[Rfam]
RNA sequence: ACUGGCAUAUAUGAUGAGUGAACUUCUUUCCCCGGCAGAUCGACCGUGGUGAUACAGCUUUUCUAAGCCAGUUUAUCUGAUAUGCCAGU
Numbered sequence: 001a002c003u004g005g006c007a008u009a010u011a012u013g014a015u016g017a018g019u020g021a022a023c024u025u026c027u028u029u030c031c032c033c034g035g036c037a038g039a040u041c042g043a044c045c046g047u048g049g050u051g052a053u054a055c056a057g058c059u060u061u062u063c064u065a066a067g068c069c070a071g072u073u074u075a076u077c078u079g080a081u082a083u084g085c086c087a088g089u
Stems, first nucleotide, its partner, number of pairs: 001089009
RNA: Small nucleolar SNORD12/SNORD106
Organism: Cnephaeus nilssonii